[Rfam]
RNA sequence: CCUGUGUGGAAUGUUGUCUGGUUCUAGGCAUUUAGAGGAGACAUGCAUGCCUCAUCUUGUUUGGGCCCUCGGACCAGGCUUCAUUCCCCUCAGA
Numbered sequence: 001c002c003u004g005u006g007u008g009g010a011a012u013g014u015u016g017u018c019u020g021g022u023u024c025u026a027g028g029c030a031u032u033u034a035g036a037g038g039a040g041a042c043a044u045g046c047a048u049g050c051c052u053c054a055u056c057u058u059g060u061u062u063g064g065g066c067c068c069u070c071g072g073a074c075c076a077g078g079c080u081u082c083a084u085u086c087c088c089c090u091c092a093g094a
Stems, first nucleotide, its partner, number of pairs: 002093003006089001008087006016079006024071001026069001
Rfam assigns this 94-nucleotide RNA sequence from Panicum hallii to the family "mir-166 microRNA precursor family". This family represents the plant microRNA (miRNA) precursor mir-166. The family's consensus secondary structure was predicted with PFOLD. Gene Ontology terms of the family: RISC complex and miRNA-mediated post-transcriptional gene silencing.